A member of the RNA family "Small nucleolar RNA SNORA20" from Callithrix jacchus, 133 nucleotides long.
Rfam describes the family as follows. ACA20 is a member of the H/ACA class of snoRNA that guide the sites of modification of uridines to pseudouridines.
The match comes from Rfam's covariance-model search (94 bits).
The source organism's lineage runs through Eukaryota, Metazoa, Bilateria, Craniata and Callithrix.
Rfam classes the family as an H/ACA-box small nucleolar RNA.
The family's consensus secondary structure was predicted with ILM.
Gene Ontology terms of the family: nucleolus and RNA processing.
RNA sequence: CUUACCAUUUAUUUGCUGGUAUAGUCUCACGAUGAUCUGACCAGUUAUACUCACGGAAAAAAUAAUAUUGGACCAUUGUAAAUUGACAUGAAAUAACUAGUGUUUUCAUCUCUUCUGCAUGGACUAGUUGCUG
Dot-bracket structure: ..(.((.(......((((((..(.((.......)))...)))))).......).)))..........((((.(((.((((....((.(((((((.......))))).)).))...))))))).))))......
Numbered sequence: 001c002u003u004a005c006c007a008u009u010u011a012u013u014u015g016c017u018g019g020u021a022u023a024g025u026c027u028c029a030c031g032a033u034g035a036u037c038u039g040a041c042c043a044g045u046u047a048u049a050c051u052c053a054c055g056g057a058a059a060a061a062a063u064a065a066u067a068u069u070g071g072a073c074c075a076u077u078g079u080a081a082a083u084u085g086a087c088a089u090g091a092a093a094u095a096a097c098u099a100g101u102g103u104u105u106u107c108a109u110c111u112c113u114u115c116u117g118c119a120u121g122g123a124c125u126a127g128u129u130g131c132u133g
Stems, first nucleotide, its partner, number of pairs: 003057001005056002008053001015045006023036001025035002068127004073122003077119004085112002088109002090106005